[Rfam]
RNA sequence: UUCUCCAUCUUACGAGGCAGCAUUGGAUUUCAUGACUUUUUCUAAUACUGCCUGGUAAUGAUGAUGAU
Numbered sequence: 001u002u003c004u005c006c007a008u009c010u011u012a013c014g015a016g017g018c019a020g021c022a023u024u025g026g027a028u029u030u031c032a033u034g035a036c037u038u039u040u041u042c043u044a045a046u047a048c049u050g051c052c053u054g055g056u057a058a059u060g061a062u063g064a065u066g067a068u
Stems, first nucleotide, its partner, number of pairs: 002067002006063004010058004015053006022046006